[Rfam]
RNA sequence: ACGUCUUGCUGGGUUAGUGUUCGGCUUGACGCGAUUAUUAAACACUAAAAUUAAGGUAAAUAUUAUGUCUUUAAACGCUGCUGAAAAAGCUGCUAUCGUUGCAGAAUACGCACAAUCUGAA
Numbered sequence: 001a002c003g004u005c006u007u008g009c010u011g012g013g014u015u016a017g018u019g020u021u022c023g024g025c026u027u028g029a030c031g032c033g034a035u036u037a038u039u040a041a042a043c044a045c046u047a048a049a050a051u052u053a054a055g056g057u058a059a060a061u062a063u064u065a066u067g068u069c070u071u072u073a074a075a076c077g078c079u080g081c082u083g084a085a086a087a088a089g090c091u092g093c094u095a096u097c098g099u100u101g102c103a104g105a106a107u108a109c110g111c112a113c114a115a116u117c118u119g120a121a
Stems, first nucleotide, its partner, number of pairs: 008025005051074006
Dot-bracket structure: .......(((((........))))).........................((((((............))))))...............................................
RNA: Ribosomal S15 leader
Organism: Colwellia chukchiensis